[Rfam]
RNA sequence: UGUCCCUUUUAAUAGCAGUCCCGUGAGGCUGCAAAGGGGUCCGAAAGGUGUAUACGCUAUUUGUAUGCACUUUGGCAAAACCUCUUUGUGCCUCAUCGGCCAAAGAGGUUUUUUUG
Dot-bracket structure: ..(((((((.....((((((......))))))))))))).....((((((((((((.....))))))))))))...((((((((((((............))))))))))))....
RNA: PyrR binding site
Organism: Aeribacillus pallidus